RNA: L17-Actino-Proteobacteria ribosomal protein leader
Organism: Allostreptomyces psammosilenae
RNA sequence: CCGGGGCAAGUCCGCCCCGGCCGGACUGACACCGGUACCUGACACGGCCGGUGCAG
Numbered sequence: 001c002c003g004g005g006g007c008a009a010g011u012c013c014g015c016c017c018c019g020g021c022c023g024g025a026c027u028g029a030c031a032c033c034g035g036u037a038c039c040u041g042a043c044a045c046g047g048c049c050g051g052u053g054c055a056g
Stems, first nucleotide, its partner, number of pairs: 001020007026056003030053007